[Rfam]
RNA sequence: AGGCCCGGAGAGAGAGGCAGUAUCUGAUCUGCAGCCUCCAUAGCAGCUGUUGAUCAGCCCUUGCCUCUCUUUUUCUCUUCU
Numbered sequence: 001a002g003g004c005c006c007g008g009a010g011a012g013a014g015a016g017g018c019a020g021u022a023u024c025u026g027a028u029c030u031g032c033a034g035c036c037u038c039c040a041u042a043g044c045a046g047c048u049g050u051u052g053a054u055c056a057g058c059c060c061u062u063g064c065c066u067c068u069c070u071u072u073u074u075c076u077c078u079u080c081u
Stems, first nucleotide, its partner, number of pairs: 008073013024057006032049004
RNA: mir-574 microRNA precursor family
Organism: Pipistrellus kuhlii